[Rfam]
RNA sequence: UGCCAUUGCUAAGUCAAGGCUUCUUCCAGCGACUACGUGUCGUACCAUUCUCAAUGGGAGUCUGUCUGUUACAGCUUUGGUAGAUUGACGCUGGCCCGCGCCAACCUUCUUUCUGAAGCUAGGCUGAUGGGUUUUCGUUUUGAAAGCCUGUCGUAAGGGCCGAGCUGUGCUCCGUUUUUGAGUUGAGUCCUGCUUCAGCCAUCCGGCUGCUUCGUAGCAGGUCUCUUAGUAACGUUACACACAUCC
Numbered sequence: 001u002g003c004c005a006u007u008g009c010u011a012a013g014u015c016a017a018g019g020c021u022u023c024u025u026c027c028a029g030c031g032a033c034u035a036c037g038u039g040u041c042g043u044a045c046c047a048u049u050c051u052c053a054a055u056g057g058g059a060g061u062c063u064g065u066c067u068g069u070u071a072c073a074g075c076u077u078u079g080g081u082a083g084a085u086u087g088a089c090g091c092u093g094g095c096c097c098g099c100g101c102c103a104a105c106c107u108u109c110u111u112u113c114u115g116a117a118g119c120u121a122g123g124c125u126g127a128u129g130g131g132u133u134u135u136c137g138u139u140u141u142g143a144a145a146g147c148c149u150g151u152c153g154u155a156a157g158g159g160c161c162g163a164g165c166u167g168u169g170c171u172c173c174g175u176u177u178u179u180g181a182g183u184u185g186a187g188u189c190c191u192g193c194u195u196c197a198g199c200c201a202u203c204c205g206g207c208u209g210c211u212u213c214g215u216a217g218c219a220g221g222u223c224u225c226u227u228a229g230u231a232a233c234g235u236u237a238c239a240c241a242c243a244u245c246c
Base pairs, nucleotide, nucleotide: 003080004079005078017067018066019065020064023060024059025058026057027056029043030042031041032040033039091162094160095159096158097157100124101123102122104120106118107117108116109115126152127151128150129149130148131147132146133145134144135143136142137141167240168239169238173234174233175232185225186224187223191219192218193217194216196209197208198207199206200205
Dot-bracket structure: ..(((...........((((..(((((.(((((.....)))))............)))))...))))..........)))..........(..((((..(((.(.((((.....)))).).))).((((((((((((...))))))))))))....)))).)....(((...(((.........(((...((((.(((((....)))))......))))...)))......)))...)))......